Shown here is an 83-nucleotide sequence from Hucho hucho, a member of the family "mir-130 microRNA precursor family".
The source organism's lineage runs through Eukaryota, Neopterygii, Protacanthopterygii, Salmoninae and Hucho.
Gene Ontology terms of the family: RISC complex and miRNA-mediated post-transcriptional gene silencing.
The family has 9 seed sequences and 2,580 matches in Rfam 15.1.

[Rfam]
RNA sequence: AAUGGCACCCUAUGCCCUUUAUAGUGCCCUACUGUGGGUCCUGGUCAAAAGCAGUGCACUAUAAAGGGCAUAUGGUGCCACUU
Numbered sequence: 001a002a003u004g005g006c007a008c009c010c011u012a013u014g015c016c017c018u019u020u021a022u023a024g025u026g027c028c029c030u031a032c033u034g035u036g037g038g039u040c041c042u043g044g045u046c047a048a049a050a051g052c053a054g055u056g057c058a059c060u061a062u063a064a065a066g067g068g069c070a071u072a073u074g075g076u077g078c079c080a081c082u083u
Stems, first nucleotide, its partner, number of pairs: 001083002004079006012071008022061006029054002